RNA sequence: UGGAAGUGCCUUCCGAGACGGACAGAUGGAACCCUAGACAAGUCCCAUCGUUCCAGAUCAGAAGGCACUUUCGCGUUCCCGGCCACCGCUACCGGCCGCCCUUACUGAAGGGCCGAG
Number, nucleotide and partner (000 for none) at each position: 001u000002g072003g071004a070005a069006g068007u067008g066009c065010c064011u063012u062013c061014c000015g059016a058017g000018a000019c000020g054021g053022a052023c000024a000025g049026a048027u047028g000029g045030a000031a043032c042033c000034c000035u000036a000037g000038a000039c000040a000041a000042g032043u031044c000045c029046c000047a027048u026049c025050g000051u000052u022053c021054c020055a000056g000057a000058u016059c015060a000061g013062a012063a011064g010065g009066c008067a007068c006069u005070u004071u003072c002073g000074c000075g000076u000077u000078c000079c000080c000081g000082g000083c000084c000085a000086c000087c000088g000089c000090u000091a000092c000093c000094g000095g000096c000097c115098g114099c112100c111101c110102u109103u108104a000105c000106u000107g000108a103109a102110g101111g100112g099113c000114c098115g097116a000117g000
Notes
Rfam assigns this 117-nucleotide RNA sequence from Actinoplanes nipponensis to the family "Actinobacteria sRNA Ms_IGR-7". The pairing is the family consensus, mapped onto this sequence.